[Rfam]
RNA sequence: AAAAUAAAGAAGAAGUUAUCCGCUUCUCACCUUACGGAUAUUAUUUGUAAGGUUAAUAGUGAAAGUUAAUCGGUAAGUCUAACUUAGCUAAAAGAGCGGAUCCAUUAUGAUCUGCUUUUAUUUGUUUUG
Numbered sequence: 001a002a003a004a005u006a007a008a009g010a011a012g013a014a015g016u017u018a019u020c021c022g023c024u025u026c027u028c029a030c031c032u033u034a035c036g037g038a039u040a041u042u043a044u045u046u047g048u049a050a051g052g053u054u055a056a057u058a059g060u061g062a063a064a065g066u067u068a069a070u071c072g073g074u075a076a077g078u079c080u081a082a083c084u085u086a087g088c089u090a091a092a093a094g095a096g097c098g099g100a101u102c103c104a105u106u107a108u109g110a111u112c113u114g115c116u117u118u119u120a121u122u123u124g125u126u127u128u129g
Base pairs, nucleotide, nucleotide: 011027012026013025014024015023016022029053030052031051034048035047036046037045038044095116096115097114098113099112100111101110102109

A member of the RNA family "Ribosomal protein L20 leader" from Pseudobacteroides cellulosolvens, 129 nucleotides long. The source organism's lineage runs through Bacteria, Bacillota, Clostridia, Eubacteriales and Pseudobacteroides cellulosolvens. By type it is a cis-regulatory leader. Pairs were carried over by alignment from the consensus structure, which was predicted with CMfinder. About the family: This family is a putative r-protein leader autoregulatory structure found in B. subtilis and other low-GC Gram-positive bacteria.